Eukaryotic large subunit ribosomal RNA: a 310-nucleotide part of an RNA from Clytia hemisphaerica.
A reference for the family is Yusupov et al. (2001), "Crystal structure of the ribosome at 5.5 A resolution", Science.
RNA sequence: GAGUCUGACGCGUGUGCGAGUCUUAGGGUGACAGAAACCCUCCGGCGCAAUGAAAGUGAAGGCGAGUUCGGCUCGUCGAGGUGAGAUCCGUCCCACACCGGUUCGGCGCAUCAUCGUCCGACCGUUUCUACUCUUAGAAAGGUUUGAGAAAGAGCAUACGUGUUGGGACCCGAAAGAUGGUGAACUAUGCUUGAGUAGGGCGAAGCCAGAGGAAACUCUGGUGGAGGCUCGUAGCGAUUCUGACGUGCAAAUCGAUCGUCAAACUUGGGUAUAGGGGCGAAAGACUAAUCGAACCAUCUAGUAGCUGGUU
Dot-bracket structure: ....(((((((((((((..(((..(((((.......)))))..)))...((....))......................(((((...((...............))....))))).(((((((.....((....))....)).))).))....)))))))))))))..((.(...((((((...((((((((((((.((((...(((((((....)))))))....))))...((((.((.((........))))))))..).))))))))))).((.......))......))))))......).))..